[Rfam]
RNA sequence: AGGAGAGGGAGGGCGGCCGACGGUAGGGCGAAAGCCCAGCUGAGGAAGGUCCCCCCUCCAUGAGAAGGUGGCCUACGCAAGUGGGCUGGUGAGAGCCAGGGCAAGGGCGCAGAAACGACACAGCCCGGACCGAGGAUGAUUCGAUGACGAUGACGUUGGUCCGGGAUUUGGUGAAACGGCGACUCCCCACCGGAGCAAGCCCAAACAGUCGGGGUGACCACUCGGGACCGACGGGUAGGGUGCUUAGUUGAAUGCCGCCUGAAACAGAAGGGGGCCUACUACCCUCACCU
Numbered sequence: 001a002g003g004a005g006a007g008g009g010a011g012g013g014c015g016g017c018c019g020a021c022g023g024u025a026g027g028g029c030g031a032a033a034g035c036c037c038a039g040c041u042g043a044g045g046a047a048g049g050u051c052c053c054c055c056c057u058c059c060a061u062g063a064g065a066a067g068g069u070g071g072c073c074u075a076c077g078c079a080a081g082u083g084g085g086c087u088g089g090u091g092a093g094a095g096c097c098a099g100g101g102c103a104a105g106g107g108c109g110c111a112g113a114a115a116c117g118a119c120a121c122a123g124c125c126c127g128g129a130c131c132g133a134g135g136a137u138g139a140u141u142c143g144a145u146g147a148c149g150a151u152g153a154c155g156u157u158g159g160u161c162c163g164g165g166a167u168u169u170g171g172u173g174a175a176a177c178g179g180c181g182a183c184u185c186c187c188c189a190c191c192g193g194a195g196c197a198a199g200c201c202c203a204a205a206c207a208g209u210c211g212g213g214g215u216g217a218c219c220a221c222u223c224g225g226g227a228c229c230g231a232c233g234g235g236u237a238g239g240g241u242g243c244u245u246a247g248u249u250g251a252a253u254g255c256c257g258c259c260u261g262a263a264a265c266a267g268a269a270g271g272g273g274g275c276c277u278a279c280u281a282c283c284c285u286c287a288c289c290u
Stems, first nucleotide, its partner, number of pairs: 001290003005286005010280002012259006021042004047277003051274005056195004061224003067191005072085005086099005100186002107180002121170003124165008141150002199241004208232005